Small nucleolar RNA Z103: a 106-nucleotide sequence from Zizania palustris. For this family Rfam cites "The high diversity of snoRNAs in plants: identification and comparative study of 120 snoRNA genes from Oryza sativa" (Chen et al., Nucleic Acids Res, 2003). A search with the family's covariance model found it, with a score of 70 bits. The base pairs follow the family's consensus structure, which was predicted with PFOLD. Rfam links the family to the GO terms nucleolus and RNA processing.
RNA sequence: UUUGAGGUGACGAUCCUUUCCCUAACUUAUCGACUAUAAUUAUACUAUACGAUUUUGCAAGUUCUUCUCUCUGGAGAAGGCUUCUAUGCCAUUAGUUCUGAUCAAA
Number, nucleotide and partner (000 for none) at each position: 001u106002u105003u104004g103005a102006g000007g000008u000009g000010a000011c000012g000013a000014u000015c000016c000017u000018u000019u000020c000021c000022c000023u000024a000025a000026c000027u000028u000029a000030u000031c000032g000033a000034c000035u000036a000037u000038a000039a000040u000041u000042a000043u000044a000045c000046u000047a000048u000049a000050c000051g000052a000053u000054u000055u000056u000057g000058c000059a000060a000061g000062u000063u000064c000065u000066u000067c000068u000069c000070u000071c000072u000073g000074g000075a000076g000077a000078a000079g000080g000081c000082u000083u000084c000085u000086a000087u000088g000089c000090c000091a000092u000093u000094a000095g000096u000097u000098c000099u000100g000101a000102u005103c004104a003105a002106a001